RNA sequence: UCCUAUAGUUUACUAGCCUAAGCUUCGGCUUAGGUAAGGCUGGUGAUUUUUUAAUCACCGGCCU
Numbered sequence: 001u002c003c004u005a006u007a008g009u010u011u012a013c014u015a016g017c018c019u020a021a022g023c024u025u026c027g028g029c030u031u032a033g034g035u036a037a038g039g040c041u042g043g044u045g046a047u048u049u050u051u052u053a054a055u056c057a058c059c060g061g062c063c064u
Stems, first nucleotide, its partner, number of pairs: 016035003022029002038063010
RNA: Pseudomonas sRNA P26
Organism: Ferrimonas aestuarii